[Rfam]
RNA sequence: UAGUAGUGUGACAUGUCCGUUUGGGAUUUACUCUGAUGUAUGUUUAUUUAUUAUUAAAUUGUUUCUGGGUAACGGGGUGUUACACCAAU
Numbered sequence: 001u002a003g004u005a006g007u008g009u010g011a012c013a014u015g016u017c018c019g020u021u022u023g024g025g026a027u028u029u030a031c032u033c034u035g036a037u038g039u040a041u042g043u044u045u046a047u048u049u050a051u052u053a054u055u056a057a058a059u060u061g062u063u064u065c066u067g068g069g070u071a072a073c074g075g076g077g078u079g080u081u082a083c084a085c086c087a088a089u
Stems, first nucleotide, its partner, number of pairs: 002089001004087001006085009016076006
RNA: MIR2617 microRNA precursor family